[Rfam]
Record summary
The family of this 93-nucleotide sequence from Galemys pyrenaicus is "mir-1388 microRNA precursor family". Rfam links the family to the GO terms miRNA-mediated post-transcriptional gene silencing and RISC complex. The match comes from Rfam's covariance-model search (84 bits).
RNA sequence: GGCUGGGCAGCGCCUCCAGGGCUGUCCGACCCGAGAAUGCUGAGUCCUCAGGGUCACUCUCAGGUUCGUCAGCCCGGGAGGCGCUACCCCCUC
Numbered sequence: 001g002g003c004u005g006g007g008c009a010g011c012g013c014c015u016c017c018a019g020g021g022c023u024g025u026c027c028g029a030c031c032c033g034a035g036a037a038u039g040c041u042g043a044g045u046c047c048u049c050a051g052g053g054u055c056a057c058u059c060u061c062a063g064g065u066u067c068g069u070c071a072g073c074c075c076g077g078g079a080g081g082c083g084c085u086a087c088c089c090c091c092u093c
Stems, first nucleotide, its partner, number of pairs: 005090003009085008019075002022072003026068001028066004033061004038056002